A member of the RNA family "Group II catalytic intron D1-D4-6" from Microvirga sp. VF16, 219 nucleotides long.
RNA sequence: AAAGUUCGGUACAGAAAAGGAGUAGCUAUCCUCCUUGGCCCUGAGUCCUGCGGAGGCGUUCGUGAGGGCGACUUCGAAGCAUUGACAGGACAACCGCAGGCCAGCCGUUGAGCCGCGAAAUAGGAAAUCUGGAGUGCCGACGCUGUUAUCCUUAGCAAGGCAAAACGUUGGGCGGCAUCUAUCGCGAGCCACCCAACGGCUCGACGAGGUCGGAGACCC
Numbered sequence: 001a002a003a004g005u006u007c008g009g010u011a012c013a014g015a016a017a018a019g020g021a022g023u024a025g026c027u028a029u030c031c032u033c034c035u036u037g038g039c040c041c042u043g044a045g046u047c048c049u050g051c052g053g054a055g056g057c058g059u060u061c062g063u064g065a066g067g068g069c070g071a072c073u074u075c076g077a078a079g080c081a082u083u084g085a086c087a088g089g090a091c092a093a094c095c096g097c098a099g100g101c102c103a104g105c106c107g108u109u110g111a112g113c114c115g116c117g118a119a120a121u122a123g124g125a126a127a128u129c130u131g132g133a134g135u136g137c138c139g140a141c142g143c144u145g146u147u148a149u150c151c152u153u154a155g156c157a158a159g160g161c162a163a164a165a166c167g168u169u170g171g172g173c174g175g176c177a178u179c180u181a182u183c184g185c186g187a188g189c190c191a192c193c194c195a196a197c198g199g200c201u202c203g204a205c206g207a208g209g210u211c212g213g214a215g216a217c218c219c
Base pairs, nucleotide, nucleotide: 012037013036014035019031020030021029023187025185026184040089041088045086046085047084049081050080051076052075053074054073055072057070058069059068060067061066109213110211112210113209114208116206117205130204132202133201134200135199136161137160138159142156143155144154166198167197168196169195170194171193172192174190175189176188
Notes:
The family has 174 seed sequences and 1,617 matches in Rfam 15.1. On this family, see Bonen and Vogel, Trends Genet 2001: "The ins and outs of group II introns". Rfam links the family to the GO term Group II intron splicing. It scores 129 bits against the family's covariance model.